[Rfam]
RNA sequence: GGUCUGUGAUGCAUAGUAAAAGGUCUGAUUAUCCAACGACUUGCAUUUCCAUGACCUUUUUUCCCAGCAGUUUCUCACCAGUCAUGGCACAGUAAUGGUGUGGCUGGCAGAGUGUCUGCUGACAGCCUGGGAUGUGUUGAGGUCAUGUUAACCUGAAGUACCAGAGACAUGACUGGGAUCGGCAUCCAACAGCCCUGCUUGAUGGAGUUUGGGGUCUUGGAUUGUUCUACCUGGACAUGUGAUCUGACUUUUCUGCUGAGACC
Numbered sequence: 001g002g003u004c005u006g007u008g009a010u011g012c013a014u015a016g017u018a019a020a021a022g023g024u025c026u027g028a029u030u031a032u033c034c035a036a037c038g039a040c041u042u043g044c045a046u047u048u049c050c051a052u053g054a055c056c057u058u059u060u061u062u063c064c065c066a067g068c069a070g071u072u073u074c075u076c077a078c079c080a081g082u083c084a085u086g087g088c089a090c091a092g093u094a095a096u097g098g099u100g101u102g103g104c105u106g107g108c109a110g111a112g113u114g115u116c117u118g119c120u121g122a123c124a125g126c127c128u129g130g131g132a133u134g135u136g137u138u139g140a141g142g143u144c145a146u147g148u149u150a151a152c153c154u155g156a157a158g159u160a161c162c163a164g165a166g167a168c169a170u171g172a173c174u175g176g177g178a179u180c181g182g183c184a185u186c187c188a189a190c191a192g193c194c195c196u197g198c199u200u201g202a203u204g205g206a207g208u209u210u211g212g213g214g215u216c217u218u219g220g221a222u223u224g225u226u227c228u229a230c231c232u233g234g235a236c237a238u239g240u241g242a243u244c245u246g247a248c249u250u251u252u253c254u255g256c257u258g259a260g261a262c263c
Stems, first nucleotide, its partner, number of pairs: 001263004034246002038244002041241001048221004053216002061207004065121006078107009129187001131186005144171006

Shown here is a 263-nucleotide RNA sequence from Rhynochetos jubatus, a member of the family "Small Cajal body specific RNA 6". Gene Ontology terms of the family: nucleolus and RNA processing. About the family: U88 is small Cajal body specific RNA (scaRNA). scaRNAs are a novel class of small nuclear RNAs which localise to the Cajal bodies. U88 is found associated with both fibrillarin and Gar1p and co-localises with coilin in Cajal bodies. It scores 104 bits against the family's covariance model. For this family Rfam cites "Cajal body-specific small nuclear RNAs: a novel class of 2'-O-methylation and pseudouridylation guide RNAs" (Darzacq et al., EMBO J, 2002). Taxonomically the source falls in Rhynochetos (Eukaryota, Vertebrata, Dipnotetrapodomorpha, Theropoda).